[Rfam]
RNA sequence: CUACAUCUACCCUGUAGAUCCGAAUUUGUGUACUUGUUAAUGGCAACAAAUUCGGUUCUAGAGAGGUUUGUGUG
Numbered sequence: 001c002u003a004c005a006u007c008u009a010c011c012c013u014g015u016a017g018a019u020c021c022g023a024a025u026u027u028g029u030g031u032a033c034u035u036g037u038u039a040a041u042g043g044c045a046a047c048a049a050a051u052u053c054g055g056u057u058c059u060a061g062a063g064a065g066g067u068u069u070g071u072g073u074g
Stems, first nucleotide, its partner, number of pairs: 002072004011063001016059003020055010
Dot-bracket structure: .((((.....(....(((.((((((((((................)))))))))).)))...).....))))..
This 74-nucleotide sequence from Medioppia subpectinata belongs to the Rfam family "mir-10 microRNA precursor family". The match comes from Rfam's covariance-model search (54 bits). A reference for the family is Lee and Ambros (2001), "An extensive class of small RNAs in Caenorhabditis elegans", Science.